[Rfam]
RNA sequence: UGGGCAGUAUCCUCUAGUUGAACUGCACCGUGUAUGAUUAGGUGGCUAAUGAAUCUAUAUUAAUUUAUUAGAAUGAUACCUAAAAUUGAAGAAAUUCUGCCUAGAUCCGCUACGGGACCGGGACAGAGGG
Numbered sequence: 001u002g003g004g005c006a007g008u009a010u011c012c013u014c015u016a017g018u019u020g021a022a023c024u025g026c027a028c029c030g031u032g033u034a035u036g037a038u039u040a041g042g043u044g045g046c047u048a049a050u051g052a053a054u055c056u057a058u059a060u061u062a063a064u065u066u067a068u069u070a071g072a073a074u075g076a077u078a079c080c081u082a083a084a085a086u087u088g089a090a091g092a093a094a095u096u097c098u099g100c101c102u103a104g105a106u107c108c109g110c111u112a113c114g115g116g117a118c119c120g121g122g123a124c125a126g127a128g129g130g
Stems, first nucleotide, its partner, number of pairs: 001030003004026005010021002097126003100122003104118001106117003
Overview: The record is a 130-nucleotide sequence from Cytobacillus depressus, which matches "pan motif" in Rfam. A search with the family's covariance model found it, with a score of 49 bits. The family's consensus secondary structure is taken from published work.